[Rfam]
RNA: c-di-GMP-I riboswitch aptamer
RNA sequence: AAAAGAUAAGGGCAAAGUUGUCUAAAGACAGCGACGCAAAGCCAUAGGGUCUAACGUGCCAAUGCACUAUGACAGCCUGGUUGCCGAA
Numbered sequence: 001a002a003a004a005g006a007u008a009a010g011g012g013c014a015a016a017g018u019u020g021u022c023u024a025a026a027g028a029c030a031g032c033g034a035c036g037c038a039a040a041g042c043c044a045u046a047g048g049g050u051c052u053a054a055c056g057u058g059c060c061a062a063u064g065c066a067c068u069a070u071g072a073c074a075g076c077c078u079g080g081u082u083g084c085c086g087a088a
Stems, first nucleotide, its partner, number of pairs: 012037002017032006040082004046078003049073003056067004
Dot-bracket structure: ...........((...((((((....))))))...))..((((..((((((....((((....))))...)))..)))))))......